[Rfam]
RNA sequence: UAUUCUGGGAUGGAUGGGGCCUGUGCUGGUUUUUGCCGCGGUGAUACUUCAACGUGAUGAUUAUCACCGGGUGAAAAUACGGCACAGGUCCAAUCCUGCCUU
Number, nucleotide and partner (000 for none) at each position: 001u000002a000003u000004u000005c000006u000007g000008g000009g000010a000011u000012g000013g000014a000015u000016g000017g091018g090019g089020c088021c087022u086023g000024u084025g083026c082027u081028g080029g078030u077031u076032u075033u074034u073035g072036c071037c070038g000039c069040g000041g067042u066043g065044a064045u063046a062047c000048u000049u000050c000051a000052a000053c000054g000055u000056g000057a000058u000059g000060a000061u000062u046063a045064u044065c043066a042067c041068c000069g039070g037071g036072u035073g034074a033075a032076a031077a030078u029079a000080c028081g027082g026083c025084a024085c000086a022087g021088g020089u019090c018091c017092a000093a000094u000095c000096c000097u000098g000099c000100c000101u000102u000